[Rfam]
RNA sequence: ACAAUCCUAAUGUGUUCGUCUAUCUUCACAUGUUUUGACCGAACACUUAUAGAAAAGGGAGUCUGGUGUUUUCAUAUGGCGUAAAUGCCUCAUUGAGGACUUACAAAGUAUGGAACAGGACACCCACCUGCCGGGAGCGGGUUCAAAACUAUAACCAGAUGGACGGCACGAUUGGGAUUGUA
Number, nucleotide and partner (000 for none) at each position: 001a000002c180003a179004a178005u177006c176007c175008u174009a173010a172011u171012g169013u168014g167015u166016u000017c165018g164019u163020c000021u000022a000023u000024c000025u000026u000027c000028a000029c000030a000031u000032g149033u148034u147035u000036u145037g144038a143039c141040c140041g000042a000043a000044c000045a000046c000047u000048u000049a000050u000051a000052g000053a000054a000055a000056a000057g125058g124059g123060a000061g121062u120063c119064u118065g000066g116067u000068g000069u000070u000071u114072u113073c112074a111075u110076a109077u108078g000079g000080c000081g000082u000083a102084a101085a000086u000087g000088c098089c097090u096091c095092a000093u000094u000095g091096a090097g089098g088099a000100c000101u084102u083103a000104c000105a000106a000107a000108g077109u076110a075111u074112g073113g072114a071115a000116c066117a000118g064119g063120a062121c061122a000123c059124c058125c057126a000127c000128c000129u000130g000131c000132c000133g000134g000135g000136a000137g000138c000139g000140g040141g039142u000143u038144c037145a036146a000147a034148a033149c032150u000151a000152u000153a000154a000155c000156c000157a000158g000159a000160u000161g000162g000163a019164c018165g017166g015167c014168a013169c012170g000171a011172u010173u009174g008175g007176g006177a005178u004179u003180g002181u000182a000